Description: Shown here is a 75-nucleotide RNA sequence from Pedionomus torquatus, a member of the family "mir-551 microRNA precursor family". The literature on the family includes a 2008 paper in Genome Res by Murchison et al., "Conservation of small RNA pathways in platypus". It scores 77 bits against the family's covariance model.
RNA sequence: CGGCCCUCGAAAUCAAGGCUGGGUAAGACCUCGUAAGCAAACUAAAAGGCGACCCAUACUUGGUUUCAGGGGCUG
Numbered sequence: 001c002g003g004c005c006c007u008c009g010a011a012a013u014c015a016a017g018g019c020u021g022g023g024u025a026a027g028a029c030c031u032c033g034u035a036a037g038c039a040a041a042c043u044a045a046a047a048g049g050c051g052a053c054c055c056a057u058a059c060u061u062g063g064u065u066u067c068a069g070g071g072g073c074u075g
Stems, first nucleotide, its partner, number of pairs: 002074006009067006016060002021055004029049003